[Rfam]
RNA sequence: AUUUACAUUAAAAAAAGCACUCGUAUAAUCGCGGGAAUAGGGCCCGCAAGUUUCUACCAGGCUGCCGUAAACAGCCUGACUACGAGUGAUACUUUGACAUAG
Numbered sequence: 001a002u003u004u005a006c007a008u009u010a011a012a013a014a015a016a017g018c019a020c021u022c023g024u025a026u027a028a029u030c031g032c033g034g035g036a037a038u039a040g041g042g043c044c045c046g047c048a049a050g051u052u053u054c055u056a057c058c059a060g061g062c063u064g065c066c067g068u069a070a071a072c073a074g075c076c077u078g079a080c081u082a083c084g085a086g087u088g089a090u091a092c093u094u095u096g097a098c099a100u101a102g
Stems, first nucleotide, its partner, number of pairs: 018088008029049001031047005058078007

A member of the RNA family "Purine riboswitch aptamer" from Halalkalibacterium halodurans, 102 nucleotides long. Pairs were carried over by alignment from the consensus structure, which is taken from published work. Its family is annotated with purine nucleobase biosynthetic process in the Gene Ontology. Taxonomically the source falls in Halalkalibacterium halodurans (Bacteria, Bacillati, Bacillota, Caryophanales).